[Rfam]
Source information
Shown here is a 122-nucleotide sequence from Cytobacillus dafuensis, a member of the family "PyrR binding site". Lineage of the source: Bacteria > Bacillati > Bacillota > Bacillaceae > Cytobacillus. The match comes from Rfam's covariance-model search (69 bits). Pairs were carried over by alignment from the consensus structure, which is taken from published work. This family represents the PyrR binding site and terminator structure. This RNA structure is found upstream of a variety of genes involved in pyrimidine biosynthesis and transport. Rfam classes the family as a cis-regulatory element. Rfam 15.1 lists 1,498 matches to the family in 930 species.
Nucleotides: 122
Stems, first nucleotide, its partner, number of pairs: 003041007017032005046073010057062001080115011
Number, partner (000 for none) and nucleotide at each position: 001000a002000g003041c004040c005039c006038u007037u008036u009035u010000u011000u012000a013000a014000a015000a016000g017032c018031a019030g020029u021028c022000c023000c024000g025000u026000g027000a028021g029020g030019c031018u032017g033000a034000c035009a036008a037007a038006g039005g040004g041003g042000g043000a044000a045000g046073c047072a048071u049070g050069c051068a052067a053066a054065a055064g056000c057062a058000a059000u060000u061000a062057u063000u064055c065054u066053u067052u068051u069050g070049c071048a072047u073046g074000a075000c076000u077000u078000u079000u080115a081114u082113a083112c084111c085110c086109u087108c088107u089106u090105u091000g092000u093000g094000c095000c096000a097000a098000u099000u100000g101000g102000c103000a104000a105090a106089a107088a108087g109086a110085g111084g112083g113082u114081a115080u116000u117000u118000u119000u120000u121000u122000g